[Rfam]
RNA sequence: UUUUUAAACGGGGGGGGGGGGGGGGAACCCCCCCCCCCUAAAAAAAAAGGGGGGGGGUUUUUACCCCCCCCCCGGUUUUUUUUUUAAAACCCCCCCCCCGGGUAAAAAAAAACCGGGGGGGGGGGUAAAAAAAAAAAAAAACCCCCCCCCGGGGGGGGUUUUUUUUUUUUUUACCCCCCCCCCCGGUAAAAAAAAAAACCGGGGGGGGGGUUACCCCCCCCCG
Numbered sequence: 001u002u003u004u005u006a007a008a009c010g011g012g013g014g015g016g017g018g019g020g021g022g023g024g025g026a027a028c029c030c031c032c033c034c035c036c037c038c039u040a041a042a043a044a045a046a047a048a049g050g051g052g053g054g055g056g057g058u059u060u061u062u063a064c065c066c067c068c069c070c071c072c073c074g075g076u077u078u079u080u081u082u083u084u085u086a087a088a089a090c091c092c093c094c095c096c097c098c099c100g101g102g103u104a105a106a107a108a109a110a111a112a113c114c115g116g117g118g119g120g121g122g123g124g125g126u127a128a129a130a131a132a133a134a135a136a137a138a139a140a141a142c143c144c145c146c147c148c149c150c151g152g153g154g155g156g157g158g159u160u161u162u163u164u165u166u167u168u169u170u171u172u173a174c175c176c177c178c179c180c181c182c183c184c185g186g187u188a189a190a191a192a193a194a195a196a197a198a199c200c201g202g203g204g205g206g207g208g209g210g211u212u213a214c215c216c217c218c219c220c221c222c223g
Stems, first nucleotide, its partner, number of pairs: 001194005008187002011184001012182006018149008031055003035052005062123001064121005075090003099115003152167003200223010
BsrG: a 223-nucleotide RNA. On this family, see Jahn et al., Mol Microbiol 2015: "Against the mainstream: the membrane-associated type I toxin BsrG from Bacillus subtilis interferes with cell envelope biosynthesis without increasing membrane permeability". bsrE, bsrG and bsrH pair through intermolecular interactions with antisense sRNAs. They form type I toxin/antitoxin system that includes an mRNA encoding for a short, toxic peptide (bsrE, bsrG and bsrH) and an antitoxin that is comprised of an antisense RNA. bsrG encodes a 39-amino-acid toxin, and the 180 nucleotide antisense sRNA called SR4 acts as the antitoxin (they overlap by 123 nucleotides). It is annotated as a small RNA. The family has 6 seed sequences and 614 matches in Rfam 15.1. The match comes from Rfam's covariance-model search (56 bits).